[Rfam]
RNA sequence: UCUCCCGCUUCACCUCCCUGAGCGGGUGCCCCAUGCCAGUGGGGCAUUUUCACCCCCGGCUACUCCCCUGGUCGGGGGUUUUUGUU
Numbered sequence: 001u002c003u004c005c006c007g008c009u010u011c012a013c014c015u016c017c018c019u020g021a022g023c024g025g026g027u028g029c030c031c032c033a034u035g036c037c038a039g040u041g042g043g044g045c046a047u048u049u050u051c052a053c054c055c056c057c058g059g060c061u062a063c064u065c066c067c068c069u070g071g072u073c074g075g076g077g078g079u080u081u082u083u084g085u086u
Base pairs, nucleotide, nucleotide: 004026005025006024007023008022009021028045029044030043031042032041033040034039053078054077055076056075057074058073059072060071061070062069
Rfam assigns this 86-nucleotide RNA from Thauera propionica to the family "Burkholderia RNA 7 (anti-hemB)". The match comes from Rfam's covariance-model search (70 bits). Rfam 15.1 lists 479 matches to the family in 458 species. For this family Rfam cites "Experimental identification of small non-coding regulatory RNAs in the opportunistic human pathogen Burkholderia cenocepacia J2315" (Ramos et al., Genomics, 2013). The organism belongs to Thauera, within Bacteria. Rfam's curators write: This RNA motif was identified by computational search in b-proteobacteria Burkholderia. Rfam links the family to the GO terms protein binding and bacterial biofilm matrix.